Source information
Rfam assigns this 72-nucleotide RNA sequence from Vagococcus teuberi to the family "L17 ribosomal protein downstream element". Taxonomically the source falls in Vagococcus (Bacteria, Bacillota, Lactobacillales, Enterococcaceae).

[Rfam]
RNA sequence: AGAGUGUUAUGAUGUUGGAGAGUAAUCUCCGAGUCUAGCUCGGUGCAGUCCUCUGUCUCUUGUGAUAGAGGA
Numbered sequence: 001a002g003a004g005u006g007u008u009a010u011g012a013u014g015u016u017g018g019a020g021a022g023u024a025a026u027c028u029c030c031g032a033g034u035c036u037a038g039c040u041c042g043g044u045g046c047a048g049u050c051c052u053c054u055g056u057c058u059c060u061u062g063u064g065a066u067a068g069a070g071g072a
Base pairs, nucleotide, nucleotide: 002041003040004039005038011035012034013033017030018029019028020027021026049072050071051070052069053068054067055066056065057064

It scores 54 bits against the family's covariance model. By type it is a cis-regulatory element.